[Rfam]
RNA sequence: GUUUACCACUAGGGGCGCCCGCGGGCUGAGACGUACUCUUUGAACCUGAUAUGGUUGAUACCAUCGGAGGAAAGUGGGUAUUUUUCACA
Numbered sequence: 001g002u003u004u005a006c007c008a009c010u011a012g013g014g015g016c017g018c019c020c021g022c023g024g025g026c027u028g029a030g031a032c033g034u035a036c037u038c039u040u041u042g043a044a045c046c047u048g049a050u051a052u053g054g055u056u057g058a059u060a061c062c063a064u065c066g067g068a069g070g071a072a073a074g075u076g077g078g079u080a081u082u083u084u085u086c087a088c089a
Stems, first nucleotide, its partner, number of pairs: 006077005011039004016033001017026003045070003051064004
TPP riboswitch aptamer (THI element): an 89-nucleotide RNA from Savagea serpentis. Rfam describes the family as follows. Vitamin B(1) in its active form thiamin pyrophosphate (TPP) is an essential coenzyme that is synthesised by coupling of pyrimidine and thiazole moieties in bacteria. It scores 75 bits against the family's covariance model. The base pairs follow the family's consensus structure, which is taken from published work. NCBI's taxonomy places the organism under Bacteria, Bacilli, Caryophanales, Caryophanaceae, Savagea.